[Rfam]
RNA sequence: UUGCAGCUAUGGCGACAUUGUGCCGUCCACCAUUAUCGGCAAAAUAGUUGGCGGUGUCUGCUCUUUAUCCGGCGUCCUUGUUAUCGCCCUGCCCGUGCCAGUCAUUGUGUCGAAU
Numbered sequence: 001u002u003g004c005a006g007c008u009a010u011g012g013c014g015a016c017a018u019u020g021u022g023c024c025g026u027c028c029a030c031c032a033u034u035a036u037c038g039g040c041a042a043a044a045u046a047g048u049u050g051g052c053g054g055u056g057u058c059u060g061c062u063c064u065u066u067a068u069c070c071g072g073c074g075u076c077c078u079u080g081u082u083a084u085c086g087c088c089c090u091g092c093c094c095g096u097g098c099c100a101g102u103c104a105u106u107g108u109g110u111c112g113a114a115u
Stems, first nucleotide, its partner, number of pairs: 002114001004112001006111001008109005014103003020098004038078002041075001050064002
Potassium channel RNA editing signal: a 115-nucleotide RNA sequence from Macrostomum lignano. By type it is a cis-regulatory element. A search with the family's covariance model found it, with a score of 68 bits. Pairs were carried over by alignment from the consensus structure, which is taken from published work. The literature on the family includes a 2004 paper in Nat Struct Mol Biol by Bhalla et al., "Control of human potassium channel inactivation by editing of a small mRNA hairpin".